[Rfam]
A member of the RNA family "7SK RNA" from Chordeiles acutipennis, 321 nucleotides long. On this family, see Blencowe, Curr Biol 2002: "Transcription: surprising role for an elusive small nuclear RNA". It scores 274 bits against the family's covariance model. About the family: 7SK was discovered as an abundant small nuclear RNA in the mid-70s but a possible function has only recently been suggested. By type it is a non-coding RNA gene.
RNA sequence: AGAUGUGAGGGCGAUCUGGCUGCGACAUCUGUCACCCCAUUGAUCGCCAGGGUUGAUUCGGCUGAUCUGGCUGGCUAGGUGGGUGUCCCCUUCCUCCCUCACCUCUCCAUGUGUGUCCCUCCCGAAGCUGCGCACUCAGUCAAAGAGGAUGACCUUCCCUGAUAGAGGCGGGUACUGUUCAUCAGUCAAGGGUUUACUUAGGGUAACGGCUCCCCUGCUGGAACCUCCAAACAAGCUCUCAAGGUCCAUUUGUAGGAGAACGUAGGGUAAUCAAGCUUCUGAUUCUAUACAUCGUUGUCUCUAAAUUGGAAACAUAUGGGU
Number, nucleotide and partner (000 for none) at each position: 001a000002g107003a106004u000005g102006u101007g100008a099009g098010g097011g096012c000013g093014a092015u000016c000017u000018g090019g089020c000021u000022g000023c000024g087025a086026c085027a084028u083029c082030u081031g080032u079033c078034a000035c074036c073037c070038c069039a068040u000041u000042g067043a066044u065045c064046g062047c061048c060049a000050g000051g000052g000053u000054u000055g000056a000057u000058u000059c000060g048061g047062c046063u000064g045065a044066u043067c042068u039069g038070g037071c000072u000073g036074g035075c000076u000077a000078g033079g032080u031081g030082g029083g028084u027085g026086u025087c024088c000089c019090c018091u000092u014093c013094c000095u000096c011097c010098c009099u008100c007101a006102c005103c000104u000105c000106u003107c002108c000109a000110u000111g000112u000113g000114u000115g000116u171117c170118c168119c167120u166121c165122c139123c000124g137125a136126a000127g135128c000129u000130g000131c000132g000133c000134a000135c127136u125137c124138a000139g122140u162141c161142a160143a000144a000145g000146a000147g158148g157149a156150u000151g000152a000153c000154c000155u000156u149157c148158c147159c000160u142161g141162a140163u000164a000165g121166a120167g119168g118169c000170g117171g116172g000173u000174a000175c000176u000177g000178u000179u000180c000181a000182u000183c000184a000185g000186u000187c000188a000189a000190g000191g000192g000193u000194u000195u000196a000197c000198u000199u000200a000201g000202g000203g276204u275205a000206a000207c000208g000209g000210c000211u269212c000213c267214c266215c265216u264217g263218c262219u000220g000221g000222a000223a000224c000225c258226u257227c256228c255229a000230a000231a253232c252233a251234a250235g249236c000237u000238c000239u000240c000241a000242a000243g000244g000245u000246c000247c000248a000249u235250u234251u233252g232253u231254a000255g228256g227257a226258g225259a000260a000261c000262g218263u217264a216265g215266g214267g213268u000269a211270a000271u000272c000273a000274a000275g204276c203277u000278u000279c000280u000281g000282a000283u000284u000285c000286u000287a000288u000289a000290c000291a000292u000293c000294g000295u000296u000297g000298u000299c000300u000301c000302u000303a000304a000305a000306u000307u000308g000309g000310a000311a321312a000313c319314a000315u000316a000317u000318g000319g313320g000321u311